[Rfam]
RNA sequence: GUAUAUGCUCAGGGAUAUGGCCUGAGCGUUUCUACCCGGUUACCGUAAAUAACCGGACUAC
Numbered sequence: 001g002u003a004u005a006u007g008c009u010c011a012g013g014g015a016u017a018u019g020g021c022c023u024g025a026g027c028g029u030u031u032c033u034a035c036c037c038g039g040u041u042a043c044c045g046u047a048a049a050u051a052a053c054c055g056g057a058c059u060a061c
Stems, first nucleotide, its partner, number of pairs: 001061003007027007036056007
RNA: Purine riboswitch aptamer
Organism: Paenactinomyces guangxiensis